[Rfam]
RNA: DUF3800-VIII RNA
RNA sequence: UAAGCCCUGUCGUCUCCGAAGCCUUACGUUCCAAUGUAGGGUAUUGAUGUAGAAGCGACGGGGCUUU
Numbered sequence: 001u002a003a004g005c006c007c008u009g010u011c012g013u014c015u016c017c018g019a020a021g022c023c024u025u026a027c028g029u030u031c032c033a034a035u036g037u038a039g040g041g042u043a044u045u046g047a048u049g050u051a052g053a054a055g056c057g058a059c060g061g062g063g064c065u066u067u
Stems, first nucleotide, its partner, number of pairs: 002066012015054001017052001021042009